[Rfam]
RNA sequence: AGCGAGGCUAGAGUCACGUCUGGACAUUGACCUGUUGUCCUGAUGUGCUAGAGUGCUCGCAGAAGAAAAAUCUUUGCUUAUUCAUUGGCUGUAGUCUAACGUGGCCCAGUCAAUCACCGGCUCAGACACACGA
Numbered sequence: 001a002g003c004g005a006g007g008c009u010a011g012a013g014u015c016a017c018g019u020c021u022g023g024a025c026a027u028u029g030a031c032c033u034g035u036u037g038u039c040c041u042g043a044u045g046u047g048c049u050a051g052a053g054u055g056c057u058c059g060c061a062g063a064a065g066a067a068a069a070a071u072c073u074u075u076g077c078u079u080a081u082u083c084a085u086u087g088g089c090u091g092u093a094g095u096c097u098a099a100c101g102u103g104g105c106c107c108a109g110u111c112a113a114u115c116a117c118c119g120g121c122u123c124a125g126a127c128a129c130a131c132g133a
Stems, first nucleotide, its partner, number of pairs: 002060005007054003012049002015047006023039004072125002076121003084114005090108002095103001

The family of this 133-nucleotide sequence from Anabas testudineus is "Small nucleolar RNA SNORA3/SNORA45 family". A reference for the family is Gu et al. (2005), "A novel experimental approach for systematic identification of box H/ACA snoRNAs from eukaryotes", Nucleic Acids Res. It is annotated as an H/ACA-box small nucleolar RNA. Rfam's curators write: The members of this family belong to the H/ACA class of snoRNAs which are thought to guide the sites of modification of uridines to pseudouridines. This family includes mouse snoMBI-28 and human homologues ACA3 (SNORA3) and ACA3-2 (SNORA45). Both ACA3 and ACA3-2 share the same host gene. MBI-28, ACA3 and ACA3-2 are all predicted to guide the pseudouridylation of residues in 28S rRNA. A search with the family's covariance model found it, with a score of 79 bits. Its family is annotated with RNA processing and nucleolus in the Gene Ontology. The family is grouped with related families in Rfam's "SNORA3 clan".